The family of this 89-nucleotide RNA from Streptomyces genisteinicus is "sodF sRNA". The source organism's lineage runs through Bacteria, Actinomycetota, Kitasatosporales, Streptomycetaceae and Streptomyces. Rfam 15.1 lists 336 matches to the family in 317 species.
RNA sequence: GCGCCCUGCUCGUGAUCGUCUUCUCAACCUUCACCGGGCAGGCGGAUGAAGGACGGCCCCCGCGAGGACAGGACUCGCGGGGGCCGUCU
Numbered sequence: 001g002c003g004c005c006c007u008g009c010u011c012g013u014g015a016u017c018g019u020c021u022u023c024u025c026a027a028c029c030u031u032c033a034c035c036g037g038g039c040a041g042g043c044g045g046a047u048g049a050a051g052g053a054c055g056g057c058c059c060c061c062g063c064g065a066g067g068a069c070a071g072g073a074c075u076c077g078c079g080g081g082g083g084c085c086g087u088c089u
Stems, first nucleotide, its partner, number of pairs: 002044002005042007012034004018028002051089016
The match comes from Rfam's covariance-model search (95 bits).
For this family Rfam cites "Inverse regulation of Fe- and Ni-containing SOD genes by a Fur family regulator Nur through small RNA processed from 3'UTR of the sodF mRNA" (Kim et al., Nucleic Acids Res, 2014).
Rfam classes the family as a small RNA.